[Rfam]
RNA sequence: UGACCACUUCCUUUGGGAAGUUAAGGCAACGGUACGCCGGGUCAAAUGCCGA
Numbered sequence: 001u002g003a004c005c006a007c008u009u010c011c012u013u014u015g016g017g018a019a020g021u022u023a024a025g026g027c028a029a030c031g032g033u034a035c036g037c038c039g040g041g042u043c044a045a046a047u048g049c050c051g052a
Stems, first nucleotide, its partner, number of pairs: 001044005006021006

Shown here is a 52-nucleotide RNA sequence from Halalkalibacterium halodurans, a member of the family "Streptococcus sRNA SpF59 (ldcC RNA)". It is one of the family's seed sequences. NCBI's taxonomy places the organism under Bacteria, Bacillati, Caryophanales, Halalkalibacterium (ex Joshi et al. 2022), Halalkalibacterium halodurans. Rfam classes the family as a small RNA. For this family Rfam cites "Control of virulence by small RNAs in Streptococcus pneumoniae" (Mann et al., PLoS Pathog, 2012).